[Rfam]
RNA sequence: CCCUUAACUAUUAAAAGUUUCGUUUUGGUCCUUUAACUUACUUUUUGGUUUCGUUUUGGUCCCUUAACUUAUUUUUUGGUUUCAUUUUGGUCCCUUAACUCUAAUACAUUCAUCCUAACAUAAAGGACCAAAGUGGUUGACAGAGGAUGAGUUAAGGGACCAAAACAAAACCAAAAAGUAAGUUAAAGGAUCAAAACGAAACCAAAAAGUAAGUUAAGGGACCAAAACGAAACUUUUAAUAGUUAAGGUA
Numbered sequence: 001c002c003c004u005u006a007a008c009u010a011u012u013a014a015a016a017g018u019u020u021c022g023u024u025u026u027g028g029u030c031c032u033u034u035a036a037c038u039u040a041c042u043u044u045u046u047g048g049u050u051u052c053g054u055u056u057u058g059g060u061c062c063c064u065u066a067a068c069u070u071a072u073u074u075u076u077u078g079g080u081u082u083c084a085u086u087u088u089g090g091u092c093c094c095u096u097a098a099c100u101c102u103a104a105u106a107c108a109u110u111c112a113u114c115c116u117a118a119c120a121u122a123a124a125g126g127a128c129c130a131a132a133g134u135g136g137u138u139g140a141c142a143g144a145g146g147a148u149g150a151g152u153u154a155a156g157g158g159a160c161c162a163a164a165a166c167a168a169a170a171c172c173a174a175a176a177a178g179u180a181a182g183u184u185a186a187a188g189g190a191u192c193a194a195a196a197c198g199a200a201a202c203c204a205a206a207a208a209g210u211a212a213g214u215u216a217a218g219g220g221a222c223c224a225a226a227a228c229g230a231a232a233c234u235u236u237u238a239a240u241a242g243u244u245a246a247g248g249u250a
Stems, first nucleotide, its partner, number of pairs: 002248007023227003027223003031219013045205011
This 250-nucleotide RNA from Medicago truncatula belongs to the Rfam family "MIR2655 microRNA precursor family". Rfam's curators put it in the seed alignment. Gene Ontology terms of the family: RISC complex and miRNA-mediated post-transcriptional gene silencing.